[Rfam]
RNA sequence: ACCGCGGGGGACUGGGGGGGAUGGCCCGGGCUCCCCGUUCGGGGAGCCCGGGCCAUCCCCCCCAACCCCCCGCGGU
Numbered sequence: 001a002c003c004g005c006g007g008g009g010g011a012c013u014g015g016g017g018g019g020g021a022u023g024g025c026c027c028g029g030g031c032u033c034c035c036c037g038u039u040c041g042g043g044g045a046g047c048c049c050g051g052g053c054c055a056u057c058c059c060c061c062c063c064a065a066c067c068c069c070c071c072g073c074g075g076u
Stems, first nucleotide, its partner, number of pairs: 001076009013065001016061015033046001035044002
Dot-bracket structure: (((((((((...(..(((((((((((((((..(.((......)).))))))))))))))))...)..)))))))))

Rfam assigns this 76-nucleotide RNA from Sapayoa aenigma to the family "Epstein-Barr virus stable intronic sequence RNA 2".
The pairing is the family consensus, mapped onto this sequence.
The family's RNA type in Rfam is non-coding RNA gene.